[Rfam]
Rfam assigns this 218-nucleotide sequence from Temnothorax longispinosus to the family "Small nucleolar RNA U3". The family is grouped with related families in Rfam's "U3 clan". A reference for the family is Zwieb (1997), "The uRNA database", Nucleic Acids Res.

RNA sequence: AAGAUCGUACUUCACGGGAUCACUUCUGUAAGAGUUGAUCUUAUUUUCCCUCCUUAAUGUGAAAGCUGAUGUAACCAUGAUGAGGGGCAAUAGCCUUCUUCCUUGAGCGUGAGAACGACACGAGUUCCUGAGUUAUUCGUGAUCCUACCCAUUGAUGACCGUUCGUUCUUUACACUUGCUAGUGCAUCGAUAAUGAAAGAAAGAGCUUUCUGAAUGCU
Number, nucleotide and partner (000 for none) at each position: 001a042002a041003g040004a039005u038006c000007g000008u000009a035010c034011u033012u000013c000014a000015c028016g027017g026018g025019a024020u000021c000022a000023c000024u019025u018026c017027u016028g015029u000030a000031a000032g000033a011034g010035u009036u000037g000038a005039u004040c003041u002042u001043a000044u000045u000046u063047u062048c061049c000050c000051u000052c059053c000054u000055u000056a000057a000058u000059g052060u000061g048062a047063a046064a000065g000066c000067u000068g000069a000070u000071g000072u000073a000074a218075c000076c216077a215078u214079g000080a000081u000082g000083a000084g000085g000086g000087g000088c000089a000090a000091u000092a000093g206094c205095c000096u000097u204098c203099u202100u201101c000102c199103u198104u197105g000106a000107g162108c161109g160110u000111g000112a000113g000114a000115a000116c000117g150118a000119c000120a000121c000122g000123a146124g145125u000126u000127c141128c000129u139130g138131a137132g000133u000134u000135a000136u000137u131138c130139g129140u000141g127142a000143u000144c000145c124146u123147a000148c000149c000150c117151a000152u000153u000154g000155a000156u000157g000158a000159c000160c109161g108162u107163u000164c000165g194166u193167u000168c189169u000170u000171u186172a000173c184174a183175c000176u000177u000178g000179c000180u000181a000182g000183u174184g173185c000186a171187u000188c000189g168190a000191u000192a000193a166194u165195g000196a000197a104198a103199g102200a000201a100202a099203g098204a097205g094206c093207u000208u000209u000210c000211u000212g000213a000214a078215u077216g076217c000218u074

Source information: Its family is annotated with nucleolus and RNA processing in the Gene Ontology. From the family's description: Small nucleolar RNAs (snoRNAs) are involved in the processing and modification of rRNA in the nucleolus. There are two main classes of snoRNAs: the box C/D class, and the box H/ACA class. U3 snoRNA is a member of the box C/D class.